[Rfam]
RNA sequence: UUGCUUCUGGGAUGAAGAAAGUCCCUGAUAUUUAUCCACCCUUUUCACUUUGCCAGUAAUAUUUUGCUUGUGUUUUGCUGACCAUUCCUGGAUGGUACAUUU
Numbered sequence: 001u002u003g004c005u006u007c008u009g010g011g012a013u014g015a016a017g018a019a020a021g022u023c024c025c026u027g028a029u030a031u032u033u034a035u036c037c038a039c040c041c042u043u044u045u046c047a048c049u050u051u052g053c054c055a056g057u058a059a060u061a062u063u064u065u066g067c068u069u070g071u072g073u074u075u076u077g078c079u080g081a082c083c084a085u086u087c088c089u090g091g092a093u094g095g096u097a098c099a100u101u102u
Base pairs, nucleotide, nucleotide: 036095037094038093040091052082054080055079056078057077058076059075